[Rfam]
RNA sequence: GGGCAUUUGGUCUAGUGGUAUGAUUCUCGCUUAGGGUGCGAGAGGUCCCGAGUUCAAUUCUCGGAAUGCCCC
Dot-bracket structure: (((((((..(((.........))).(((((.......))))).....(((((.......)))))))))))).
tRNA: a 72-nucleotide sequence. By type it is a transfer RNA. Pairs were carried over by alignment from the consensus structure, which is taken from published work. The sequence is in the family's curated seed alignment. Rfam describes the family as follows. Transfer RNA (tRNA) molecules are approximately 80 nucleotides in length.